[Rfam]
RNA sequence: GAAUUUUUUGAUUAGUGCCUGCUAUUAAGCGGGCCAUUAUGGAAG
Number, nucleotide and partner (000 for none) at each position: 001g000002a000003a000004u000005u000006u000007u000008u000009u000010g000011a000012u000013u000014a000015g000016u000017g034018c033019c032020u031021g030022c029023u028024a000025u000026u000027a000028a023029g022030c021031g020032g019033g018034c017035c000036a000037u000038u000039a000040u000041g000042g000043a000044a000045g000
RNA: nuoG RNA
Organism: Prodigiosinella confusarubida